Record summary
A member of the RNA family "Xanthomonadaceae sRNA Xoo5" from Thermomonas carbonis, 125 nucleotides long. The family's consensus secondary structure was predicted with RNAalifold. NCBI's taxonomy places the organism under Bacteria, Pseudomonadota, Gammaproteobacteria, Lysobacteraceae, Thermomonas. The family's RNA type in Rfam is small RNA.
[Rfam]
Nucleotides: 125
Stems, first nucleotide, its partner, number of pairs: 034119002038113002041109002043079002046076004055070005080107002085101003089096001
Number, partner (000 for none) and nucleotide at each position: 001000u002000g003000a004000u005000g006000c007000a008000c009000g010000c011000a012000c013000a014000c015000c016000u017000c018000g019000c020000c021000a022000c023000g024000c025000g026000c027000u028000a029000u030000g031000c032000a033000a034119g035118c036000u037000c038113u039112g040000c041109c042108c043079g044078g045000a046076u047075g048074g049073c050000c051000u052000c053000c054000g055070g056069c057068a058067u059066g060000a061000c062000c063000u064000c065000g066059c067058g068057u069056g070055c071000g072000c073049g074048c075047c076046g077000a078044c079043c080107g081106g082000a083000a084000a085101c086100u087099u088000c089096c090000c091000g092000a093000a094000c095000u096089g097000c098000u099087g100086g101085g102000u103000a104000g105000a106081c107080c108042g109041g110000a111000u112039c113038g114000c115000c116000u117000u118035g119034u120000c121000g122000u123000g124000c125000a